[Rfam]
RNA sequence: AUGGCGGUGAUGAUUGGCGCAGGGGUACGGACCUCAGCUAGAUCAUGGGAGCUGAAUGCAAACUGUGUGUUUCGGUGCGGCUGGCGUGUGGCUGGCUCACUGGGAACAGGUUUGCAUGAGACUUCGCCAAAAACUGAGCCAU
Numbered sequence: 001a002u003g004g005c006g007g008u009g010a011u012g013a014u015u016g017g018c019g020c021a022g023g024g025g026u027a028c029g030g031a032c033c034u035c036a037g038c039u040a041g042a043u044c045a046u047g048g049g050a051g052c053u054g055a056a057u058g059c060a061a062a063c064u065g066u067g068u069g070u071u072u073c074g075g076u077g078c079g080g081c082u083g084g085c086g087u088g089u090g091g092c093u094g095g096c097u098c099a100c101u102g103g104g105a106a107c108a109g110g111u112u113u114g115c116a117u118g119a120g121a122c123u124u125c126g127c128c129a130a131a132a133a134c135u136g137a138g139c140c141a142u
Stems, first nucleotide, its partner, number of pairs: 001142005
RNA: Small nucleolar RNA SNORD94
Organism: Corythaixoides concolor